The family of this 134-nucleotide sequence from Gadus morhua is "Small nucleolar RNA SNORA13". From the family's description: ACA13 is a member of the H/ACA class of snoRNA that guide the sites of modification of uridines to pseudouridines. The family's RNA type in Rfam is H/ACA-box small nucleolar RNA. The source organism's lineage runs through Eukaryota, Vertebrata, Osteoglossocephalai, Gadiformes and Gadus.
[Rfam]
RNA sequence: UGCCUUUAUGUGUUGCCAAUUCAUUUAUUUUGUAGUGGAUUGGGUGUCAACUAAGGCAUACAGUAUUAUCUUGCAGUUAUCUUAUUGAUAGAUUUUAUCAUUAAUUCUGUCAGAAUAAUUGCAAGGACAUAAUG
Numbered sequence: 001u002g003c004c005u006u007u008a009u010g011u012g013u014u015g016c017c018a019a020u021u022c023a024u025u026u027a028u029u030u031u032g033u034a035g036u037g038g039a040u041u042g043g044g045u046g047u048c049a050a051c052u053a054a055g056g057c058a059u060a061c062a063g064u065a066u067u068a069u070c071u072u073g074c075a076g077u078u079a080u081c082u083u084a085u086u087g088a089u090a091g092a093u094u095u096u097a098u099c100a101u102u103a104a105u106u107c108u109g110u111c112a113g114a115a116u117a118a119u120u121g122c123a124a125g126g127a128c129a130u131a132a133u134g
Stems, first nucleotide, its partner, number of pairs: 002057005011049002014046004018041008069127004073122006083115001085113006093104002